[Rfam]
RNA sequence: UCUGGGCAGCGUAGCGACUGCCUGUAACCCGAGCGGGAGUAAGAGAGAUGGGAGCUGGGGCCCUCGCAGAGGACCGCUGGGACCAUGUCGAAGGCACGUCCACUCGAAGCGUGGAGUCUCUGAUCUGGGCUCCUCGGCGGAAGCCAGGGGAGUCUGGGGAGAUGAUGCGGAGGGCACAGCGUGAGGCGGGCGACCGAGCAGCGAUCACUUCCCGCUCUGCGCAGUCGAGGGACCGCGUGCUUGAAUGCUUGCCAGCGAUCAUCCGAUGUGAGCAGCUUCCUGCAACCUCUCUC
Numbered sequence: 001u002c003u004g005g006g007c008a009g010c011g012u013a014g015c016g017a018c019u020g021c022c023u024g025u026a027a028c029c030c031g032a033g034c035g036g037g038a039g040u041a042a043g044a045g046a047g048a049u050g051g052g053a054g055c056u057g058g059g060g061c062c063c064u065c066g067c068a069g070a071g072g073a074c075c076g077c078u079g080g081g082a083c084c085a086u087g088u089c090g091a092a093g094g095c096a097c098g099u100c101c102a103c104u105c106g107a108a109g110c111g112u113g114g115a116g117u118c119u120c121u122g123a124u125c126u127g128g129g130c131u132c133c134u135c136g137g138c139g140g141a142a143g144c145c146a147g148g149g150g151a152g153u154c155u156g157g158g159g160a161g162a163u164g165a166u167g168c169g170g171a172g173g174g175c176a177c178a179g180c181g182u183g184a185g186g187c188g189g190g191c192g193a194c195c196g197a198g199c200a201g202c203g204a205u206c207a208c209u210u211c212c213c214g215c216u217c218u219g220c221g222c223a224g225u226c227g228a229g230g231g232a233c234c235g236c237g238u239g240c241u242u243g244a245a246u247g248c249u250u251g252c253c254a255g256c257g258a259u260c261a262u263c264c265g266a267u268g269u270g271a272g273c274a275g276c277u278u279c280c281u282g283c284a285a286c287c288u289c290u291c292u293c
Stems, first nucleotide, its partner, number of pairs: 002039002004023006028037003043293006050287002054283002057279002059276001063272006071264003075257006082250001086244001092242008100231002103229005109222009120161002124158012136145003169212005178205001180203003187196003
Background
Shown here is a 293-nucleotide RNA sequence from Marchantia polymorpha, a member of the family "Plant signal recognition particle RNA". Clan: SRP clan. By type it is a non-coding RNA gene. Rfam links the family to the GO terms signal recognition particle, endoplasmic reticulum targeting and SRP-dependent cotranslational protein targeting to membrane, signal sequence recognition. The organism belongs to Marchantia polymorpha, within Eukaryota. For this family Rfam cites "Crystal structure of the ribonucleoprotein core of the signal recognition particle" (Batey et al., Science, 2000).